[Rfam]
RNA: RNA anti-toxin A
RNA sequence: UAAUAGAAACAGAAAAGGAAGCCUUGCGUGAACAAGACUUCCCACGUAGAGCCGUGUAAGACGGUAGCAUUAAUUAACGACUAAAAA
Numbered sequence: 001u002a003a004u005a006g007a008a009a010c011a012g013a014a015a016a017g018g019a020a021g022c023c024u025u026g027c028g029u030g031a032a033c034a035a036g037a038c039u040u041c042c043c044a045c046g047u048a049g050a051g052c053c054g055u056g057u058a059a060g061a062c063g064g065u066a067g068c069a070u071u072a073a074u075u076a077a078c079g080a081c082u083a084a085a086a087a
Base pairs, nucleotide, nucleotide: 023036024035025034026033051065052064053063054062055061